Rfam assigns this 95-nucleotide RNA sequence from Photinus pyralis to the family "mir-2788 microRNA precursor family". A search with the family's covariance model found it, with a score of 74 bits.
RNA sequence: AAACGCUGUUGUUACAAUUUUGGGGUUUCUCAGUGGCAUUUGCCUUGAGUAACGUUGCAAUGCCCUUGGAAAUCCCAAGUAUGUAUGCAACUAAU
Number, nucleotide and partner (000 for none) at each position: 001a000002a000003a000004c000005g000006c000007u000008g091009u090010u089011g088012u087013u000014a084015c083016a082017a000018u000019u000020u000021u077022g076023g075024g074025g073026u072027u071028u070029c069030u000031c000032a066033g065034u000035g064036g063037c062038a061039u060040u000041u059042g058043c057044c000045u000046u000047g000048a000049g000050u000051a000052a000053c000054g000055u000056u000057g043058c042059a041060a039061u038062g037063c036064c035065c033066u032067u000068g000069g029070a028071a027072a026073u025074c024075c023076c022077a021078a000079g000080u000081a000082u016083g015084u014085a000086u000087g012088c011089a010090a009091c008092u000093a000094a000095u000